A member of the RNA family "Small Cajal body specific RNA 23" from Castor canadensis, 125 nucleotides long. By type it is a small Cajal body RNA. The organism belongs to Castor, within Eukaryota. About the family: scaRNAs are a specific class of small nuclear RNAs which localise to the Cajal bodies and guide the modification of RNA polymerase II transcribed spliceosomal RNAs U1, U2, U4, U5 and U12. ACA11 belongs to the H/ACA box class of guide RNAs as it has the predicted hairpin-hinge-hairpin-tail structure,the conserved H/ACA-box motifs and is found associated with GAR1. H/ACA snRNAs are predicted to guide the modification of uridines to pseudouridines in substrate RNAs however, no target RNA has been identified for scaRNA ACA11. For this family Rfam cites "Cajal body-specific small nuclear RNAs: a novel class of 2'-O-methylation and pseudouridylation guide RNAs" (Darzacq et al., EMBO J, 2002). Rfam links the family to the GO terms RNA processing, nucleolus and Cajal body.
RNA sequence: CUGCUCACCAGGGCUCAGUCUUCUCCAUGUGGUCCUGACCUGCCCUUCAUGAGCGAGAAAAUUGGAACUGGUUUGGGGGUGUCCUGCCUGAGUGGACGUGGGACACCAUGGUUUUCAGUACAACA
Numbered sequence: 001c002u003g004c005u006c007a008c009c010a011g012g013g014c015u016c017a018g019u020c021u022u023c024u025c026c027a028u029g030u031g032g033u034c035c036u037g038a039c040c041u042g043c044c045c046u047u048c049a050u051g052a053g054c055g056a057g058a059a060a061a062u063u064g065g066a067a068c069u070g071g072u073u074u075g076g077g078g079g080u081g082u083c084c085u086g087c088c089u090g091a092g093u094g095g096a097c098g099u100g101g102g103a104c105a106c107c108a109u110g111g112u113u114u115u116c117a118g119u120a121c122a123a124c125a
Stems, first nucleotide, its partner, number of pairs: 003054005012044003018039003025032002065121001067119005073111003078107008086097001088095002